[Rfam]
RNA: ALIL pseudoknot
RNA sequence: GGCGUAUUUUGCCCAGGCGGAGCUCGACCGCCGACCGAAGUGAUGAAGCGGUUCAUCGACGAGAACCGGAACGUCUACGGGGUCGAGCCGAUCUGCAAGGUGUUGCCGAUCGCC
Number, nucleotide and partner (000 for none) at each position: 001g000002g000003c000004g000005u000006a000007u000008u000009u000010u000011g000012c000013c000014c000015a000016g032017g031018c030019g029020g028021a000022g000023c000024u000025c000026g000027a000028c020029c019030g018031c017032c016033g000034a000035c000036c000037g000038a000039a000040g000041u000042g000043a000044u000045g000046a000047a000048g000049c000050g000051g000052u000053u000054c000055a000056u000057c000058g000059a000060c000061g000062a000063g000064a000065a000066c000067c000068g000069g000070a000071a000072c000073g000074u000075c000076u000077a000078c000079g000080g000081g114082g113083u000084c000085g000086a000087g000088c000089c112090g111091a000092u109093c108094u000095g106096c105097a104098a103099g000100g000101u000102g000103u098104u097105g096106c095107c000108g093109a092110u000111c090112g089113c082114c081